[Rfam]
RNA sequence: AUACUUACUUAGCACUGGAGUUAUCCUUGAUCAAAAAGGAGGAUCUCCCGAGCAGAGACCAUCCAUUGCACUUCGGUUGGUUGACGUUCGCCACCUCCGCAAACGGUUAAGCUUGGGGUGCACACUUGGUAGCGGGGCUGUCAAGAGCGCCCCU
Numbered sequence: 001a002u003a004c005u006u007a008c009u010u011a012g013c014a015c016u017g018g019a020g021u022u023a024u025c026c027u028u029g030a031u032c033a034a035a036a037a038g039g040a041g042g043a044u045c046u047c048c049c050g051a052g053c054a055g056a057g058a059c060c061a062u063c064c065a066u067u068g069c070a071c072u073u074c075g076g077u078u079g080g081u082u083g084a085c086g087u088u089c090g091c092c093a094c095c096u097c098c099g100c101a102a103a104c105g106g107u108u109a110a111g112c113u114u115g116g117g118g119u120g121c122a123c124a125c126u127u128g129g130u131a132g133c134g135g136g137g138c139u140g141u142c143a144a145g146a147g148c149g150c151c152c153c154u
Stems, first nucleotide, its partner, number of pairs: 012121004017048004024043005050089004055085001057082003061078001063076002091116003095111002099108001134153005140148001